Shown here is a 136-nucleotide RNA from Frankia sp. R43, a member of the family "Group II catalytic intron D1-D4-4". Rfam's curators write: Group II introns are found in rRNA, tRNA and mRNA of organelles in fungi, plants and protists, and also in mRNA in bacteria. On this family, see Bonen and Vogel, Trends Genet 2001: "The ins and outs of group II introns". The source organism's lineage runs through Bacteria, Actinomycetota, Frankiales, Frankiaceae and Frankia. The base pairs follow the family's consensus structure. Rfam links the family to the GO term Group II intron splicing.
RNA sequence: CUGCCGGUGGGAGUCCGGUCCGGGUAGCUGCCAGGAGGCCCGGUAGCAGGCUGGCAGCUUCGGGGAGAAACUCCCGGGGUUGAAGCCCAGCGUCCAAAGCCCUUCAGGGGGAGCGAGUGGACGGUCCGCAGCAUGA
Numbered sequence: 001c002u003g004c005c006g007g008u009g010g011g012a013g014u015c016c017g018g019u020c021c022g023g024g025u026a027g028c029u030g031c032c033a034g035g036a037g038g039c040c041c042g043g044u045a046g047c048a049g050g051c052u053g054g055c056a057g058c059u060u061c062g063g064g065g066a067g068a069a070a071c072u073c074c075c076g077g078g079g080u081u082g083a084a085g086c087c088c089a090g091c092g093u094c095c096a097a098a099g100c101c102c103u104u105c106a107g108g109g110g111g112a113g114c115g116a117g118u119g120g121a122c123g124g125u126c127c128g129c130a131g132c133a134u135g136a
Base pairs, nucleotide, nucleotide: 020043021042022041023040024039050091051090052089053088054087055082056081057080058079059078060077064073065071100110101109102108113129114128115127